[Rfam]
Rfam assigns this 134-nucleotide RNA from Anabas testudineus to the family "Small nucleolar RNA SNORA14". The family's consensus secondary structure was predicted with RNAfold. From the family's description: ACA14 is a member of the H/ACA class of snoRNA that guide the sites of modification of uridines to pseudouridines. The family has 18 seed sequences and 848 matches in Rfam 15.1. Its family is annotated with nucleolus and RNA processing in the Gene Ontology.

RNA sequence: GCGCAUCCUUAGAAACCCCCCAGUCACUUUUUGUGGUCUCUGGGACAAGAAAGGAUGCAAAAGCAAUCUUAGAGCCAUCCAAAACUGAGAGCCAUAUAUCAGAAACUCUUGGUUAUUUCACCUCUAAGACAAAA
Numbered sequence: 001g002c003g004c005a006u007c008c009u010u011a012g013a014a015a016c017c018c019c020c021c022a023g024u025c026a027c028u029u030u031u032u033g034u035g036g037u038c039u040c041u042g043g044g045a046c047a048a049g050a051a052a053g054g055a056u057g058c059a060a061a062a063g064c065a066a067u068c069u070u071a072g073a074g075c076c077a078u079c080c081a082a083a084a085c086u087g088a089g090a091g092c093c094a095u096a097u098a099u100c101a102g103a104a105a106c107u108c109u110u111g112g113u114u115a116u117u118u119c120a121c122c123u124c125u126a127a128g129a130c131a132a133a134a
Base pairs, nucleotide, nucleotide: 003058004057005056006055009050010049019044020043021042022041023040026037027036067129068128069127070126071125072124073123083114084113085112086111087110088109089108091106097102
Dot-bracket structure: ..((((..((........(((((..((........))..)))))....))....))))........(((((((.........(((((((.(.....(....)...).)))))))........))))))).....